A member of the RNA family "Small nucleolar RNA SNORD20" from Notechis scutatus, 84 nucleotides long. Rfam 15.1 lists 573 matches to the family in 527 species. It scores 46 bits against the family's covariance model. The family's RNA type in Rfam is C/D-box small nucleolar RNA. Taxonomically the source falls in Notechis (Eukaryota, Opisthokonta, Lepidosauria, Elapidae). U20 is a C/D box small nucleolar RNA that is encoded in intron 11 of the nucleolin gene in human, mouse and rat. On this family, see Nicoloso et al., Mol Cell Biol 1994: "U20, a novel small nucleolar RNA, is encoded in an intron of the nucleolin gene in mammals".
[Rfam]
RNA sequence: UGGAAAUGAUGAUUUCUCGCUGAACUGAUGUGGUCCAAAAUCACACAUGAGCAAAAUCCUCAAGAUAGUCAAGUCCUGAUCCAG
Numbered sequence: 001u002g003g004a005a006a007u008g009a010u011g012a013u014u015u016c017u018c019g020c021u022g023a024a025c026u027g028a029u030g031u032g033g034u035c036c037a038a039a040a041u042c043a044c045a046c047a048u049g050a051g052c053a054a055a056a057u058c059c060u061c062a063a064g065a066u067a068g069u070c071a072a073g074u075c076c077u078g079a080u081c082c083a084g
Stems, first nucleotide, its partner, number of pairs: 001083004